[Rfam]
RNA sequence: AGAAAAGUGACCGCCGCCCCGCGCAGGGGCGACGCUAAUAGACCGUUGGCAAAACAGGUUCAACGACGGGGCAUGGCGAACCGACAAACAACCCACGCCCCCGCGAGCCACUC
Numbered sequence: 001a002g003a004a005a006a007g008u009g010a011c012c013g014c015c016g017c018c019c020c021g022c023g024c025a026g027g028g029g030c031g032a033c034g035c036u037a038a039u040a041g042a043c044c045g046u047u048g049g050c051a052a053a054a055c056a057g058g059u060u061c062a063a064c065g066a067c068g069g070g071g072c073a074u075g076g077c078g079a080a081c082c083g084a085c086a087a088a089c090a091a092c093c094c095a096c097g098c099c100c101c102c103g104c105g106a107g108c109c110a111c112u113c
Stems, first nucleotide, its partner, number of pairs: 011076003015031006058067003096105003
Shown here is a 113-nucleotide sequence from Burkholderia thailandensis, a member of the family "Burkholderia sRNA Bp1_Cand684_SIPHT". By type it is a small RNA. The organism belongs to Burkholderia thailandensis, within Bacteria. The base pairs follow the family's consensus structure, which was predicted with RNAalifold.